The record is a 76-nucleotide RNA sequence from Sphaeramia orbicularis, which matches "Small nucleolar RNA SNORD59" in Rfam.
RNA sequence: UCUUUCAGUGAUGAUUUGUACAGGUGACUUUCGUUCUUCUGAGUCUACUGAAGCCAUUCUUUCUGUCCUGAGAAGA
Numbered sequence: 001u002c003u004u005u006c007a008g009u010g011a012u013g014a015u016u017u018g019u020a021c022a023g024g025u026g027a028c029u030u031u032c033g034u035u036c037u038u039c040u041g042a043g044u045c046u047a048c049u050g051a052a053g054c055c056a057u058u059c060u061u062u063c064u065g066u067c068c069u070g071a072g073a074a075g076a
Base pairs, nucleotide, nucleotide: 001076002075003074006072
The organism belongs to Sphaeramia, within Eukaryota.
Gene Ontology terms of the family: RNA processing and nucleolus.